[Rfam]
RNA sequence: UACACCCUGGGAUAUUAGCUAGGCUGCUUAGACCCCUGAGCCGAUGCUUUCCCCCCCGGAGUUUUUUUAGCUGAGAUUGGUGUGCAUGUCCGCUUGUCGGAAAGCCUAAAAAUCUCGCGGAGAACUCCACCUUGAACCGCUGGGUUCAAGGGCCACGUAGCCGGCGGUAUCUUGGGGCUUCA
Numbered sequence: 001u002a003c004a005c006c007c008u009g010g011g012a013u014a015u016u017a018g019c020u021a022g023g024c025u026g027c028u029u030a031g032a033c034c035c036c037u038g039a040g041c042c043g044a045u046g047c048u049u050u051c052c053c054c055c056c057c058g059g060a061g062u063u064u065u066u067u068u069a070g071c072u073g074a075g076a077u078u079g080g081u082g083u084g085c086a087u088g089u090c091c092g093c094u095u096g097u098c099g100g101a102a103a104g105c106c107u108a109a110a111a112a113u114c115u116c117g118c119g120g121a122g123a124a125c126u127c128c129a130c131c132u133u134g135a136a137c138c139g140c141u142g143g144g145u146u147c148a149a150g151g152g153c154c155a156c157g158u159a160g161c162c163g164g165c166g167g168u169a170u171c172u173u174g175g176g177g178c179u180u181c182a
Stems, first nucleotide, its partner, number of pairs: 002180001005177011018165002033152003037148006058128003062124006072117007084105002089101004
Notes: The record is a 182-nucleotide sequence from Zhongshania aliphaticivorans, which matches "6S / SsrS RNA" in Rfam. On this family, see Wassarman and Storz, Cell 2000: "6S RNA regulates E. coli RNA polymerase activity". The match comes from Rfam's covariance-model search (104 bits). By type it is a non-coding RNA gene. Pairs were carried over by alignment from the consensus structure, which is taken from published work.